[Rfam]
Rfam assigns this 121-nucleotide sequence to the family "SAM (S-adenosyl methionine) riboswitch aptamer".

RNA sequence: AAUCACGAGUUUCCAUCGUUGACAGCCCUGGCUGAUGGAACGGCAACCCUCUUCGCGAGUAGUGGGGUGCUCCAGGUGACGAUUCGGUCCUGUGGAUACCCCACAGUGGCAAGUACCGCGU
Numbered sequence: 001a002a003u004c005a006c007g008a009g010u011u012u013c014c015a016u017c018g019u020u021g022a023c024a025g026c027c028c029u030g031g032c033u034g035a036u037g038g039a040a041c042g043g044c045a046a047c048c049c050u051c052u053u054c055g056c057g058a059g060u061a062g063u064g065g066g067g068u069g070c071u072c073c074a075g076g077u078g079a080c081g082a083u084u085c086g087g088u089c090c091u092g093u094g095g096a097u098a099c100c101c102c103a104c105a106g107u108g109g110c111a112a113g114u115a116c117c118g119c120g121u
Base pairs, nucleotide, nucleotide: 001084002083003082004081009041011040012039013038014037015036016035024033025032042071043070044069047067048066049065051062052061087110088109089108091105092104093103094102095101
A search with the family's covariance model found it, with a score of 67 bits. SAM-IV is a mRNA element that regulates gene expression via direct sensing of S-adenosylmethionine (SAM or AdoMet). Rfam links the family to the GO terms regulation of gene expression and S-adenosylmethionine metabolic process.